[Rfam]
RNA sequence: GCCUCUGUUUCUUGAUUGCGGUAGAUACUAUUAGCCUAAAAUGAGACGGCUAAUAGUAUCUACCACAAUAACAUUGUUGUGAGGA
Numbered sequence: 001g002c003c004u005c006u007g008u009u010u011c012u013u014g015a016u017u018g019c020g021g022u023a024g025a026u027a028c029u030a031u032u033a034g035c036c037u038a039a040a041a042u043g044a045g046a047c048g049g050c051u052a053a054u055a056g057u058a059u060c061u062a063c064c065a066c067a068a069u070a071a072c073a074u075u076g077u078u079g080u081g082a083g084g085a
Base pairs, nucleotide, nucleotide: 002084003083004082005081013071015069016068017067018066020064021063022062023061024060025059026058027057028056029055030054031053032052033051034050035049036048
RNA: mir-633 microRNA precursor family